Shown here is a 92-nucleotide sequence from Brassica cretica, a member of the family "Small nucleolar RNA snoR31/Z110/Z27".
The base pairs follow the family's consensus structure, which was predicted with PFOLD.
From the family's description: This family contains several related snoRNAs including R31, Z27 and Z110.
The literature on the family includes a 2001 paper in J Mol Biol by Barneche et al., "Identification of 66 box C/D snoRNAs in Arabidopsis thaliana: extensive gene duplications generated multiple isoforms predicting new ribosomal RNA 2'-O-methylation sites".
It scores 68 bits against the family's covariance model.
RNA sequence: CUGAAGAAGUGAUGAUAAAUCAGUUAAAAUCUUAGGACACCUUCUGACACAUUAAUGUGUAUGAGAAUGACUUCUAAUAUUCUGAUCUUCAG
Numbered sequence: 001c002u003g004a005a006g007a008a009g010u011g012a013u014g015a016u017a018a019a020u021c022a023g024u025u026a027a028a029a030u031c032u033u034a035g036g037a038c039a040c041c042u043u044c045u046g047a048c049a050c051a052u053u054a055a056u057g058u059g060u061a062u063g064a065g066a067a068u069g070a071c072u073u074c075u076a077a078u079a080u081u082c083u084g085a086u087c088u089u090c091a092g
Stems, first nucleotide, its partner, number of pairs: 001092007045051002